[Rfam]
Source information
The family of this 72-nucleotide RNA sequence from Coriobacteriales bacterium OH1046 is "tRNA". The literature on the family includes a 1993 paper in Trends Biochem Sci by Hou, "The tertiary structure of tRNA and the development of the genetic code". The family's RNA type in Rfam is transfer RNA. The base pairs follow the family's consensus structure, which is taken from published work. The source organism's lineage runs through Bacteria, Bacillati, Actinomycetota, Coriobacteriia and Coriobacteriales. Rfam's curators write: Transfer RNA (tRNA) molecules are approximately 80 nucleotides in length. Their secondary structure includes four short double-helical elements and three loops (D, anti-codon, and T loops). Further hydrogen bonds mediate the characteristic L-shaped molecular structure. tRNAs have two regions of fundamental functional importance: the anti-codon, which is responsible for specific mRNA codon recognition, and the 3' end, to which the tRNAs corresponding amino acid is attached (by aminoacyl-tRNA synthetases). tRNAs cope with the degeneracy of the genetic code in two manners: having more than one tRNA (with a specific anti-codon) for a particular amino acid; and 'wobble' base-pairing, i.e. permitting non-standard base-pairing at the 3rd anti-codon position.
RNA sequence: GUCCCCAUCGUCUAGCGGCUAGGACAUCGCCCUUUCAAGGCGGCAACCGGGGUUCGAUUCCCCGUGGGGGCA
Numbered sequence: 001g002u003c004c005c006c007a008u009c010g011u012c013u014a015g016c017g018g019c020u021a022g023g024a025c026a027u028c029g030c031c032c033u034u035u036c037a038a039g040g041c042g043g044c045a046a047c048c049g050g051g052g053u054u055c056g057a058u059u060c061c062c063c064g065u066g067g068g069g070g071c072a
Stems, first nucleotide, its partner, number of pairs: 001071007010025004027043005048064005
Dot-bracket structure: (((((((..((((........)))).(((((.......)))))....(((((.......)))))))))))).